Rfam assigns this 162-nucleotide sequence from Lactobacillus psittaci to the family "M-box riboswitch aptamer (ykoK leader)". The literature on the family includes a 2004 paper in Proc Natl Acad Sci U S A by Barrick et al., "New RNA motifs suggest an expanded scope for riboswitches in bacterial genetic control". Rfam describes the family as follows. M-box riboswitch, also know as ykoK leader is described as a metaloregulatory RNA that sense divalent metals and function as a genetic control element of genes related to divalent metal transport in bacteria. It was first reported upstream of the B.subtilis ykoK gene and genes with related functions in other bacteria. A search with the family's covariance model found it, with a score of 133 bits.
[Rfam]
RNA sequence: UUCAAAAUCUGUUAGGUGAGACUCCUACGUGAAAACACGCUAUCGCCCAGAAACAUCCAGAGAUGCCAACGGGUCAAACAGACUCUGUCGAAUUAAGGCGGAAUCCAGAUAGCUAGCUAGUGCUUACGUCACGUAGUGUUAAAACUGAACGAAGGCUUAUUA
Numbered sequence: 001u002u003c004a005a006a007a008u009c010u011g012u013u014a015g016g017u018g019a020g021a022c023u024c025c026u027a028c029g030u031g032a033a034a035a036c037a038c039g040c041u042a043u044c045g046c047c048c049a050g051a052a053a054c055a056u057c058c059a060g061a062g063a064u065g066c067c068a069a070c071g072g073g074u075c076a077a078a079c080a081g082a083c084u085c086u087g088u089c090g091a092a093u094u095a096a097g098g099c100g101g102a103a104u105c106c107a108g109a110u111a112g113c114u115a116g117c118u119a120g121u122g123c124u125u126a127c128g129u130c131a132c133g134u135a136g137u138g139u140u141a142a143a144a145c146u147g148a149a150c151g152a153a154g155g156c157u158u159a160u161u162a
Stems, first nucleotide, its partner, number of pairs: 005158002008155003011150002013096001015146003020140003025136008039113005045074004054065004081105002084102001087099003115124003